[Rfam]
RNA sequence: GGUGCCAUGAGAGGGACAGCAAUCCAGCCUUAGGAAAAGAAACCUUCCACCGGAGUCUUGGAGAUUGGCGACCGUCCUAAUGACUUA
Dot-bracket structure: .(.(.((((.((.((.(..(((((...((.......((((..((.......))..)))))).)))))..).)).)).).))).).).
Overview:
The record is an 87-nucleotide RNA sequence from Equus asinus, which matches "mir-9014 microRNA precursor family" in Rfam. Gene Ontology terms of the family: miRNA-mediated post-transcriptional gene silencing and RISC complex. The match comes from Rfam's covariance-model search (75 bits). The family's consensus secondary structure was predicted with RNAalifold.